[Rfam]
Nucleotides: 066
Base pairs, nucleotide, nucleotide: 001066002065003064004063005062
Number, partner (000 for none) and nucleotide at each position: 001066g002065u003064g004063c005062a006000a007000a008000u009000g010000a011000u012000g013000u014000g015000a016000a017000u018000u019000u020000c021000u022000u023000a024000a025000c026000c027000a028000c029000u030000g031000a032000g033000u034000a035000c036000a037000g038000u039000g040000a041000u042000g043000u044000u045000u046000c047000c048000a049000a050000a051000g052000g053000a054000a055000c056000c057000a058000c059000u060000g061000a062005u063004g064003c065002a066001c